Rfam assigns this 108-nucleotide RNA sequence from Streptomyces boncukensis to the family "Streptomyces RNA 4115". Rfam describes the family as follows. Identified by deep sequencing of transcriptome at the end of exponential growth phase. Sequencing size consistent with notrthern blot size. Streptomyces specific. Taxonomically the source falls in Streptomyces (Bacteria, Actinomycetota, Actinomycetes, Streptomycetaceae). It scores 89 bits against the family's covariance model. A reference for the family is Vockenhuber et al. (2011), "Deep sequencing-based identification of small non-coding RNAs in Streptomyces coelicolor", RNA Biol.
RNA sequence: GCGUGGGUCGGCCCGCUGCACAGGGUUCAGUGGGCUGGGGGACACCGCCGUCUCAUUCCCCGCGGGCGGCGGUUCGGCCCGGGGGGCGGUCAUGCCUCCCGGGCUGAA
Numbered sequence: 001g002c003g004u005g006g007g008u009c010g011g012c013c014c015g016c017u018g019c020a021c022a023g024g025g026u027u028c029a030g031u032g033g034g035c036u037g038g039g040g041g042a043c044a045c046c047g048c049c050g051u052c053u054c055a056u057u058c059c060c061c062g063c064g065g066g067c068g069g070c071g072g073u074u075c076g077g078c079c080c081g082g083g084g085g086g087c088g089g090u091c092a093u094g095c096c097u098c099c100c101g102g103g104c105u106g107a108a
Base pairs, nucleotide, nucleotide: 002106006075007074009037010036011035012034013033014032015031016030017029018028038043045072046071047070048069049068050067051066052065053064076105077104078103079102080101081100082099083098084097085096086095087094088093
Dot-bracket structure: .(...((.((((((((((.........))))))))))(....).(((((((((..........))))))))).))(((((((((((((....))))))))))))))..